[Rfam]
Description
A member of the RNA family "mir-33 microRNA precursor family" from Trichechus manatus, 67 nucleotides long. The family's consensus secondary structure was predicted with PFOLD. Rfam 15.1 lists 1,467 matches to the family in 815 species. Its family is annotated with RISC complex and gene silencing by miRNA in the Gene Ontology. The source organism's lineage runs through Eukaryota, Opisthokonta, Metazoa, Mammalia and Trichechus manatus.
RNA sequence: CUGGGGUGCAUUGUAGUUGCAUUGCAUGUUCUGCAGCACCAUGCAAUGUUCCCACAGUGCAUCCCAG
Numbered sequence: 001c002u003g004g005g006g007u008g009c010a011u012u013g014u015a016g017u018u019g020c021a022u023u024g025c026a027u028g029u030u031c032u033g034c035a036g037c038a039c040c041a042u043g044c045a046a047u048g049u050u051c052c053c054a055c056a057g058u059g060c061a062u063c064c065c066a067g
Stems, first nucleotide, its partner, number of pairs: 001067004006063001007061008016052001019049001021047007